RNA sequence: CUCCACUGAUGACCACCUAUUUGGGCCGUUGUGUCUGGGCCACUGAGUUUUGUUGAUGGAACUGAGGUUCUGAGGAG
Numbered sequence: 001c002u003c004c005a006c007u008g009a010u011g012a013c014c015a016c017c018u019a020u021u022u023g024g025g026c027c028g029u030u031g032u033g034u035c036u037g038g039g040c041c042a043c044u045g046a047g048u049u050u051u052g053u054u055g056a057u058g059g060a061a062c063u064g065a066g067g068u069u070c071u072g073a074g075g076a077g
Base pairs, nucleotide, nucleotide: 001077002076003075004074
Small nucleolar RNA SNORD66: a 77-nucleotide RNA sequence from Monodelphis domestica. From the family's description: snoRNA HBII-142 is part of the C/D family of snoRNAs. It is the human orthologue of the mouse MBII-142 snoRNA and is predicted to guide 2'O-ribose methylation of small 18S rRNA at residue C1272. For this family Rfam cites "RNomics: an experimental approach that identifies 201 candidates for novel, small, non-messenger RNAs in mouse" (Huttenhofer et al., EMBO J, 2001). NCBI's taxonomy places the organism under Eukaryota, Opisthokonta, Bilateria, Amniota, Monodelphis. The family's consensus secondary structure was predicted with RNAalifold.